mraW RNA: a 99-nucleotide RNA from Microbacterium mangrovi.
[Rfam]
RNA sequence: UUCUGACCCUGGGCUUCGACUCCCAGCCGAGACGCCCUGACGCACUUCCCCGGCGCCAGGUCCUCGCGGAUGGGGAUCAGAGUCCAGGGUCGCACCGAG
Numbered sequence: 001u002u003c004u005g006a007c008c009c010u011g012g013g014c015u016u017c018g019a020c021u022c023c024c025a026g027c028c029g030a031g032a033c034g035c036c037c038u039g040a041c042g043c044a045c046u047u048c049c050c051c052g053g054c055g056c057c058a059g060g061u062c063c064u065c066g067c068g069g070a071u072g073g074g075g076a077u078c079a080g081a082g083u084c085c086a087g088g089g090u091c092g093c094a095c096c097g098a099g
Stems, first nucleotide, its partner, number of pairs: 010086007018078002021075005027069003031065002034062001036060004041055003
Rfam 15.1 lists 851 matches to the family in 821 species. The base pairs follow the family's consensus structure, which is taken from published work. It is annotated as a cis-regulatory element.